[Rfam]
RNA: Small nucleolar RNA SNORD113/SNORD114 family
Organism: Microcebus murinus
RNA sequence: UGGAUCGAUGAUGACUACUGGUGGCGUAUGAGGGUGAUACGGUGAAUACGUCUCUGGAACGCUGAGGUCCAU
Numbered sequence: 001u002g003g004a005u006c007g008a009u010g011a012u013g014a015c016u017a018c019u020g021g022u023g024g025c026g027u028a029u030g031a032g033g034g035u036g037a038u039a040c041g042g043u044g045a046a047u048a049c050g051u052c053u054c055u056g057g058a059a060c061g062c063u064g065a066g067g068u069c070c071a072u
Base pairs, nucleotide, nucleotide: 002070003069004068005067006066